Gammaprotebacteria rimP leader: a 126-nucleotide RNA sequence from Vibrio mediterranei. The base pairs follow the family's consensus structure, which is taken from published work. It is annotated as a cis-regulatory leader.
RNA sequence: ACUUUUUCUUAGUGAUCAGGGUCCAGCAACAAACAACCCCGACUUUCGGGGUUUUUUGUUAUUUGAGCUUUUUGAAACGCUCGAAUAAAUGCUUGGAAUUUAAAUUGGGCUAUAUGCCCUUUUUUU
Numbered sequence: 001a002c003u004u005u006u007u008c009u010u011a012g013u014g015a016u017c018a019g020g021g022u023c024c025a026g027c028a029a030c031a032a033a034c035a036a037c038c039c040c041g042a043c044u045u046u047c048g049g050g051g052u053u054u055u056u057u058g059u060u061a062u063u064u065g066a067g068c069u070u071u072u073u074g075a076a077a078c079g080c081u082c083g084a085a086u087a088a089a090u091g092c093u094u095g096g097a098a099u100u101u102a103a104a105u106u107g108g109g110c111u112a113u114a115u116g117c118c119c120u121u122u123u124u125u126u
Stems, first nucleotide, its partner, number of pairs: 033055001035053007107119004